[Rfam]
RNA sequence: UACAUUAAGUUUGCUCACUCAAGGGAAUCUUGCUCAUCCCCUAAGAAAGGGGGUGGGAAAAUGACUGUUUACGAAUCAUUAAUGAUAAUGAUCAAUUUUGGCGGAUUGAUAUUAAAUACCGUCUUGUUGAUCUUCAAUAUAAUGAUGAUUGUAACGUCAAGCCAAAAGAAAAAAUAGACCUUCCCUUGAGUUUGGACACCUGAAGGGUUAGGCCUACGCAGAUUUGACAACGAGCAAGCCCUUUGAUGGGCAGCUUUUUGUACAAACAAUGACCAGUG
Numbered sequence: 001u002a003c004a005u006u007a008a009g010u011u012u013g014c015u016c017a018c019u020c021a022a023g024g025g026a027a028u029c030u031u032g033c034u035c036a037u038c039c040c041c042u043a044a045g046a047a048a049g050g051g052g053g054u055g056g057g058a059a060a061a062u063g064a065c066u067g068u069u070u071a072c073g074a075a076u077c078a079u080u081a082a083u084g085a086u087a088a089u090g091a092u093c094a095a096u097u098u099u100g101g102c103g104g105a106u107u108g109a110u111a112u113u114a115a116a117u118a119c120c121g122u123c124u125u126g127u128u129g130a131u132c133u134u135c136a137a138u139a140u141a142a143u144g145a146u147g148a149u150u151g152u153a154a155c156g157u158c159a160a161g162c163c164a165a166a167a168g169a170a171a172a173a174a175u176a177g178a179c180c181u182u183c184c185c186u187u188g189a190g191u192u193u194g195g196a197c198a199c200c201u202g203a204a205g206g207g208u209u210a211g212g213c214c215u216a217c218g219c220a221g222a223u224u225u226g227a228c229a230a231c232g233a234g235c236a237a238g239c240c241c242u243u244u245g246a247u248g249g250g251c252a253g254c255u256u257u258u259u260g261u262a263c264a265a266a267c268a269a270u271g272a273c274c275a276g277u278g
Base pairs, nucleotide, nucleotide: 001262002261003260004259007256008255009254010252011237012236013235014234015233016232018190019189020188021187022186023185024184025183028178029177030176034056035055036054038053039052040051041050042049063131065129067127068126076091077090078089100123101122102121103120200221201220202219238251239250240249241248

This 278-nucleotide sequence belongs to the Rfam family "BsrG". bsrE, bsrG and bsrH pair through intermolecular interactions with antisense sRNAs. They form type I toxin/antitoxin system that includes an mRNA encoding for a short, toxic peptide (bsrE, bsrG and bsrH) and an antitoxin that is comprised of an antisense RNA. bsrG encodes a 39-amino-acid toxin, and the 180 nucleotide antisense sRNA called SR4 acts as the antitoxin (they overlap by 123 nucleotides). SR4 interaction with the 3'UTR of bsrG RNA promotes bsrG degradation and inhibits its translation. BsrG interferes with cell envelope biosynthesis, causes membrane invaginations and delocalisation of the cell wall synthesis and initiates autolysis. bsrE RNA encodes 30 amino-acid toxin peptide. For this family Rfam cites "Novel small RNA-encoding genes in the intergenic regions of Bacillus subtilis" (Saito et al., Gene, 2008). Its family is annotated with toxin activity and autolysis in the Gene Ontology. The family has 6 seed sequences and 614 matches in Rfam 15.1. Rfam classes the family as a small RNA.